Purine riboswitch aptamer: a 102-nucleotide RNA sequence from Metabacillus indicus.
RNA sequence: AAAUUAAUAGUACUUACCCUUCAUAUAUCCUCGAUAAUAUGGUUCGAGAGUCUCUACCGGAUUGCCGCAAAUAAUCUGACUAUGAAGGCAGAAUAUACACCU
Dot-bracket structure: .................((((((((....(((((.........))))).........(((((((.......)))))))..))))))))..............
Numbered sequence: 001a002a003a004u005u006a007a008u009a010g011u012a013c014u015u016a017c018c019c020u021u022c023a024u025a026u027a028u029c030c031u032c033g034a035u036a037a038u039a040u041g042g043u044u045c046g047a048g049a050g051u052c053u054c055u056a057c058c059g060g061a062u063u064g065c066c067g068c069a070a071a072u073a074a075u076c077u078g079a080c081u082a083u084g085a086a087g088g089c090a091g092a093a094u095a096u097a098c099a100c101c102u
Stems, first nucleotide, its partner, number of pairs: 018088008030048005058078007

Notes: Taxonomically the source falls in Metabacillus (Bacteria, Bacillati, Bacilli, Caryophanales).